RNA: Ribosomal protein L10 leader
RNA sequence: AGUAAAAUUGAAAAUUUACCGUAGACAGUAGGUGUGGCAACACAUAAAUCCUACCGAGGUUUUUAAUAAAGCUUCAUAGGGAUCCUCAUGUCUACGGGGGAUCCUUUAAUAUUUAGGG
Numbered sequence: 001a002g003u004a005a006a007a008u009u010g011a012a013a014a015u016u017u018a019c020c021g022u023a024g025a026c027a028g029u030a031g032g033u034g035u036g037g038c039a040a041c042a043c044a045u046a047a048a049u050c051c052u053a054c055c056g057a058g059g060u061u062u063u064u065a066a067u068a069a070a071g072c073u074u075c076a077u078a079g080g081g082a083u084c085c086u087c088a089u090g091u092c093u094a095c096g097g098g099g100g101a102u103c104c105u106u107u108a109a110u111a112u113u114u115a116g117g118g
Stems, first nucleotide, its partner, number of pairs: 028054005034043003080104008